Rfam assigns this 359-nucleotide part of an RNA from an uncultured archaeon to the family "Archaeal small subunit ribosomal RNA". A reference for the family is Yusupov et al. (2001), "Crystal structure of the ribosome at 5.5 A resolution", Science. The family's consensus secondary structure is taken from published work. It is one of the family's seed sequences.
RNA sequence: GGUCUAAAGCGUCCGUAGCCGGCCAGGUAAGUUCUUUGGGAAAUUUAACCGCUCAACGGUUAAGCUUUCAGGGAAUACUGCUUGGCUUGGGACCGGGAGAGGUCAGAGGUACUUCAAGGGUAGGGGUGAAAUCCGUUAAUCCUUGAGGGACCACCAGUAGCGAAGGCGUCUGACCAGACCGGGUCCGACGGUGAGGGACGAAGGCUAGGGUCGCGAACCGGAUUAGAUACCCGGGUAGUCCUAGCUGUAAACGAUGCGGGCCAGGUGUUGGCAUUACUGCGAGUGAUGUCAGUGCCGAAGGGAAGCCGUUAAGCCCGCCAUCUGGGGAGUACGGUCGCAAGGCUGAAACUUAAAGGAAU
Numbered sequence: 001g002g003u004c005u006a007a008a009g010c011g012u013c014c015g016u017a018g019c020c021g022g023c024c025a026g027g028u029a030a031g032u033u034c035u036u037u038g039g040g041a042a043a044u045u046u047a048a049c050c051g052c053u054c055a056a057c058g059g060u061u062a063a064g065c066u067u068u069c070a071g072g073g074a075a076u077a078c079u080g081c082u083u084g085g086c087u088u089g090g091g092a093c094c095g096g097g098a099g100a101g102g103u104c105a106g107a108g109g110u111a112c113u114u115c116a117a118g119g120g121u122a123g124g125g126g127u128g129a130a131a132u133c134c135g136u137u138a139a140u141c142c143u144u145g146a147g148g149g150a151c152c153a154c155c156a157g158u159a160g161c162g163a164a165g166g167c168g169u170c171u172g173a174c175c176a177g178a179c180c181g182g183g184u185c186c187g188a189c190g191g192u193g194a195g196g197g198a199c200g201a202a203g204g205c206u207a208g209g210g211u212c213g214c215g216a217a218c219c220g221g222a223u224u225a226g227a228u229a230c231c232c233g234g235g236u237a238g239u240c241c242u243a244g245c246u247g248u249a250a251a252c253g254a255u256g257c258g259g260g261c262c263a264g265g266u267g268u269u270g271g272c273a274u275u276a277c278u279g280c281g282a283g284u285g286a287u288g289u290c291a292g293u294g295c296c297g298a299a300g301g302g303a304a305g306c307c308g309u310u311a312a313g314c315c316c317g318c319c320a321u322c323u324g325g326g327g328a329g330u331a332c333g334g335u336c337g338c339a340a341g342g343c344u345g346a347a348a349c350u351u352a353a354a355g356g357a358a359u
Base pairs, nucleotide, nucleotide: 001322002321003320009319011199012198013197014196016193018192019191020190022086023085024084025083026082027081028080030079031078032075033074034073035072036071037070038069039068040067045063046062047061048060049059050058051057090186091185092184093182094181095180096179101175102174103173104172105171106170107169108152109151112148113147114146115145116144117143118142119141123134124133125132160167161166204245205244206243207242208241209240213239214238218234219233220232221231256318257317258316259315260314261313264296265295266294267293268292269291270290271289272288273287274286275285276284277283300307301306324351325350326349333344334343335342336341